The family of this 357-nucleotide RNA from Alloprevotella rava is "Bacterial RNase P class A".

[Rfam]
RNA sequence: GCAGUUGAAUGGUCCGUCGUGGAUAGUCUUUUUUAGACUAGACGAGGAAAGUCCGGGCAGCAUAGGGUGCUCCGCUUCUUAAUGGGAAGUUGUCUGCGAAGGCGAAUAAACGUAGAAGAAAAUAACUGCCUCCUUCGGAGGUAAGGGUGAGAAGGUGAGGUAAGAGCUCACCAGCAAUGUGGUGACAUGUUGGCUGUGCGUAUCGGAGGCUGAAAGUUCGCGUAAACUGGCGCUUGAGGGCGACCCGCUCGAGCCAGAGGGUAGAACGAUAGAGCCUAUUGGUGACAAUAGGCCAGGAUAAAUGACGGGCACAUUCUUUGGAAUGGACAGAACCCGGCUUAUAGUUUAACUGCUUUU
Numbered sequence: 001g002c003a004g005u006u007g008a009a010u011g012g013u014c015c016g017u018c019g020u021g022g023a024u025a026g027u028c029u030u031u032u033u034u035a036g037a038c039u040a041g042a043c044g045a046g047g048a049a050a051g052u053c054c055g056g057g058c059a060g061c062a063u064a065g066g067g068u069g070c071u072c073c074g075c076u077u078c079u080u081a082a083u084g085g086g087a088a089g090u091u092g093u094c095u096g097c098g099a100a101g102g103c104g105a106a107u108a109a110a111c112g113u114a115g116a117a118g119a120a121a122a123u124a125a126c127u128g129c130c131u132c133c134u135u136c137g138g139a140g141g142u143a144a145g146g147g148u149g150a151g152a153a154g155g156u157g158a159g160g161u162a163a164g165a166g167c168u169c170a171c172c173a174g175c176a177a178u179g180u181g182g183u184g185a186c187a188u189g190u191u192g193g194c195u196g197u198g199c200g201u202a203u204c205g206g207a208g209g210c211u212g213a214a215a216g217u218u219c220g221c222g223u224a225a226a227c228u229g230g231c232g233c234u235u236g237a238g239g240g241c242g243a244c245c246c247g248c249u250c251g252a253g254c255c256a257g258a259g260g261g262u263a264g265a266a267c268g269a270u271a272g273a274g275c276c277u278a279u280u281g282g283u284g285a286c287a288a289u290a291g292g293c294c295a296g297g298a299u300a301a302a303u304g305a306c307g308g309g310c311a312c313a314u315u316c317u318u319u320g321g322a323a324u325g326g327a328c329a330g331a332a333c334c335c336g337g338c339u340u341a342u343a344g345u346u347u348a349a350c351u352g353c354u355u356u357u
Stems, first nucleotide, its partner, number of pairs: 001353010011342001012310007020044002024040005049340003053337005058212004065246004070208005075089005090105001092103004106203002110201005126146002128142006154172006174194001175192007216267004227257005238250004274293008

The literature on the family includes a 2013 paper in RNA Biol by Beauregard et al., "Identification and characterization of small RNAs in Yersinia pestis". The source organism's lineage runs through Bacteria, Bacteroidota, Bacteroidales, Prevotellaceae and Alloprevotella rava.